[Rfam]
RNA: MIR397 microRNA precursor family
Organism: Manihot esculenta
RNA sequence: UGAAAAAACAUGAUUGAAUGCAGCGCUGGUGAAAUCAUCCCCAAAUUCCAGAAAAUUGCAGGGAAUUCAUCAACGCUGCACUCAAUGAUGUUUCUC
Numbered sequence: 001u002g003a004a005a006a007a008a009c010a011u012g013a014u015u016g017a018a019u020g021c022a023g024c025g026c027u028g029g030u031g032a033a034a035u036c037a038u039c040c041c042c043a044a045a046u047u048c049c050a051g052a053a054a055a056u057u058g059c060a061g062g063g064a065a066u067u068c069a070u071c072a073a074c075g076c077u078g079c080a081c082u083c084a085a086u087g088a089u090g091u092u093u094c095u096c
Stems, first nucleotide, its partner, number of pairs: 006093006013086005019080007027072002030069003
Dot-bracket structure: .....((((((.(((((.(((((((.((.(((..................................))).)).))))))).))))).))))))...